Shown here is an 88-nucleotide sequence from Amantichitinum ursilacus, a member of the family "sRNA-Xcc1". A reference for the family is Chen et al. (2011), "sRNA-Xcc1, an integron-encoded transposon- and plasmid-transferred trans-acting sRNA, is under the positive control of the key virulence regulators HrpG and HrpX of Xanthomonas campestris pathovar campestris", RNA Biol.
[Rfam]
RNA sequence: GGCCGGGUAGUGCGCAGUCAUACAAGACCCGAAAGGGGAAAGCUGCGGGCCGUCUAGUUGCGGUGUUCAAGUACCUGGCCGCCUCUCU
Numbered sequence: 001g002g003c004c005g006g007g008u009a010g011u012g013c014g015c016a017g018u019c020a021u022a023c024a025a026g027a028c029c030c031g032a033a034a035g036g037g038g039a040a041a042g043c044u045g046c047g048g049g050c051c052g053u054c055u056a057g058u059u060g061c062g063g064u065g066u067u068c069a070a071g072u073a074c075c076u077g078g079c080c081g082c083c084u085c086u087c088u
Stems, first nucleotide, its partner, number of pairs: 001080009013047004018042001028037003049064005

The family's RNA type in Rfam is small RNA. The family has 74 seed sequences and 421 matches in Rfam 15.1. A search with the family's covariance model found it, with a score of 84 bits. The organism belongs to Amantichitinum, within Bacteria.